[Rfam]
Nucleotides: 078
Stems, first nucleotide, its partner, number of pairs: 022039003026035003059077008
Number, partner (000 for none) and nucleotide at each position: 001000g002000a003000a004000a005000u006000c007000u008000c009000g010000a011000a012000u013000u014000u015000u016000a017000a018000u019000g020000c021000a022039g023038g024037g025000c026035c027034u028033u029000c030000c031000g032000u033028a034027a035026g036000a037024c038023c039022u040000g041000a042000a043000g044000u045000u046000c047000c048000a049000a050000u051000u052000u053000u054000u055000g056000c057000a058000u059077g060076c061075u062074c063073u064072u065071a066070c067000c068000a069000g070066g071065u072064a073063g074062g075061a076060g077059c078000u

A member of the RNA family "SmY spliceosomal RNA" from Teladorsagia circumcincta, 78 nucleotides long.
Pairs were carried over by alignment from the consensus structure, which is taken from published work.
A reference for the family is MacMorris et al. (2007), "A novel family of C. elegans snRNPs contains proteins associated with trans-splicing", RNA.
The source organism's lineage runs through Eukaryota, Eumetazoa, Ecdysozoa, Chromadorea and Teladorsagia.